[Rfam]
RNA: SAM riboswitch aptamer (S box leader)
Organism: Alkalihalophilus pseudofirmus
RNA sequence: UCCUUAUCAAGAGUGGUGGAGGGACUGACCCGAUGAAACCCGGCAACCGGUUUGUAUGCCUAUACAAACAAAGGUGCUACGUUCAGCAGAAUGAAUUCAUUCUGAAAGAUAAGGG
Numbered sequence: 001u002c003c004u005u006a007u008c009a010a011g012a013g014u015g016g017u018g019g020a021g022g023g024a025c026u027g028a029c030c031c032g033a034u035g036a037a038a039c040c041c042g043g044c045a046a047c048c049g050g051u052u053u054g055u056a057u058g059c060c061u062a063u064a065c066a067a068a069c070a071a072a073g074g075u076g077c078u079a080c081g082u083u084c085a086g087c088a089g090a091a092u093g094a095a096u097u098c099a100u101u102c103u104g105a106a107a108g109a110u111a112a113g114g115g
Stems, first nucleotide, its partner, number of pairs: 001115008013041001015040003021031003025086004042078004047074002050069006082107001087104006